[Rfam]
RNA sequence: UAGAGCAAGAAGAAACUGCCUGUUUCUCACCUUAUGGCAAUGCUAAUAAGGUUAAUAUUAACCAGAACAAUAAUAAUGUGUUCAAAGUGUUAUAUAGAUAGCAGGCUGUUUGGCCUGCUAUUAUUUUUUUGG
Numbered sequence: 001u002a003g004a005g006c007a008a009g010a011a012g013a014a015a016c017u018g019c020c021u022g023u024u025u026c027u028c029a030c031c032u033u034a035u036g037g038c039a040a041u042g043c044u045a046a047u048a049a050g051g052u053u054a055a056u057a058u059u060a061a062c063c064a065g066a067a068c069a070a071u072a073a074u075a076a077u078g079u080g081u082u083c084a085a086a087g088u089g090u091u092a093u094a095u096a097g098a099u100a101g102c103a104g105g106c107u108g109u110u111u112g113g114c115c116u117g118c119u120a121u122u123a124u125u126u127u128u129u130u131g132g
Stems, first nucleotide, its partner, number of pairs: 011027006029052003034047002037043002100119008
RNA: Ribosomal protein L20 leader